[Rfam]
RNA sequence: AAGCAAGGUAGAGGUGCGCUUGUGUAUUAGUAUGUAUACGGAGAUAUGCAAUUAUCUUUGAUGUAUACGGAAAGGACACAGUGCCGAAGUUUGAAUAUUAUUGCGAAUAUUCAUUCUGGGCAUAUCGUUAACAGCGGUAUGACUGUCAUCGUAAGGUGGGGAGCUAUCGCUGUU
Numbered sequence: 001a002a003g004c005a006a007g008g009u010a011g012a013g014g015u016g017c018g019c020u021u022g023u024g025u026a027u028u029a030g031u032a033u034g035u036a037u038a039c040g041g042a043g044a045u046a047u048g049c050a051a052u053u054a055u056c057u058u059u060g061a062u063g064u065a066u067a068c069g070g071a072a073a074g075g076a077c078a079c080a081g082u083g084c085c086g087a088a089g090u091u092u093g094a095a096u097a098u099u100a101u102u103g104c105g106a107a108u109a110u111u112c113a114u115u116c117u118g119g120g121c122a123u124a125u126c127g128u129u130a131a132c133a134g135c136g137g138u139a140u141g142a143c144u145g146u147c148a149u150c151g152u153a154a155g156g157u158g159g160g161g162a163g164c165u166a167u168c169g170c171u172g173u174u
Base pairs, nucleotide, nucleotide: 007168008167009166010165011164016084017083018082019081020080022079023078024077025076033069034068035067036066037065038064039063040062088117089116092113093112094111095110096109097108098107099106118144119143121141122140123139124138125137126136127135128134146159147158148157149156150155
RNA: Lysine riboswitch aptamer
Organism: Firmicutes bacterium CAG:41